[Rfam]
RNA sequence: GCAUAGCGAUACGGGUGCCCGGGGAUGAUAGCCGGGCUGAGAUUGCAGCUACAUAUAUCCGCUGCUGACCGUCAAUCUGAACUGGAUAAUGCCAGCGUAGAGAAUCGUCCGUACUCUUUU
Numbered sequence: 001g002c003a004u005a006g007c008g009a010u011a012c013g014g015g016u017g018c019c020c021g022g023g024g025a026u027g028a029u030a031g032c033c034g035g036g037c038u039g040a041g042a043u044u045g046c047a048g049c050u051a052c053a054u055a056u057a058u059c060c061g062c063u064g065c066u067g068a069c070c071g072u073c074a075a076u077c078u079g080a081a082c083u084g085g086a087u088a089a090u091g092c093c094a095g096c097g098u099a100g101a102g103a104a105u106c107g108u109c110c111g112u113a114c115u116c117u118u119u120u
Base pairs, nucleotide, nucleotide: 006108007107008106009105010104011072012071013070014069017037018036019035020034021033045065046064047063048062076101077100078099079098082095083094084093085092
This 120-nucleotide RNA sequence from Paenibacillus sp. CAA11 belongs to the Rfam family "TPP riboswitch aptamer (THI element)". The match comes from Rfam's covariance-model search (59 bits). Taxonomically the source falls in Paenibacillus (Bacteria, Bacillati, Bacillota, Caryophanales). Its family is annotated with thiamine pyrophosphate binding in the Gene Ontology.